[Rfam]
RNA sequence: UGGAGGACUGAGAAGGUAGGACAGUUAAACUUUAUGCUCUAUCUUACUGGUUAUAGCUUCCAAAAUUAUAAUAGUGCAAUAGCAACUCAUGUUCCCCUUCUGAAAUAAAGGAAAGCAGUACUGCAUUUGCACAUAAGGC
Numbered sequence: 001u002g003g004a005g006g007a008c009u010g011a012g013a014a015g016g017u018a019g020g021a022c023a024g025u026u027a028a029a030c031u032u033u034a035u036g037c038u039c040u041a042u043c044u045u046a047c048u049g050g051u052u053a054u055a056g057c058u059u060c061c062a063a064a065a066u067u068a069u070a071a072u073a074g075u076g077c078a079a080u081a082g083c084a085a086c087u088c089a090u091g092u093u094c095c096c097c098u099u100c101u102g103a104a105a106u107a108a109a110g111g112a113a114a115g116c117a118g119u120a121c122u123g124c125a126u127u128u129g130c131a132c133a134u135a136a137g138g139c
Stems, first nucleotide, its partner, number of pairs: 002061005015048004019042001021040001023038003082130002090123002097118002100115002